[Rfam]
Description
The family of this 80-nucleotide RNA from Neottia cordata is "Plastid-rpl20 3UTR RNA". NCBI's taxonomy places the organism under Eukaryota, Magnoliopsida, Mesangiospermae, Epidendroideae, Neottia. Plastid rpl20 is a non-coding RNA (ncRNA) recognised in plastids. It was found in the three prime untranslated region (3UTR) of rpl20 gene, it presence in the 3UTR region sugest a role in transcript maduration. Rfam's curators put it in the seed alignment. Rfam classes the family as a cis-regulatory element.
RNA sequence: AUUUCCCGGAGAAUGGACUCCGGGAAGAGAGAAGAAAAAAAUUAAGAUUUGAGUAGUAGGAAUAAACGAACAUCUUUCAA
Dot-bracket structure: ..(((((((((......))))))))).....................................(((........)))...
Numbered sequence: 001a002u003u004u005c006c007c008g009g010a011g012a013a014u015g016g017a018c019u020c021c022g023g024g025a026a027g028a029g030a031g032a033a034g035a036a037a038a039a040a041a042u043u044a045a046g047a048u049u050u051g052a053g054u055a056g057u058a059g060g061a062a063u064a065a066a067c068g069a070a071c072a073u074c075u076u077u078c079a080a
Stems, first nucleotide, its partner, number of pairs: 003026009064077003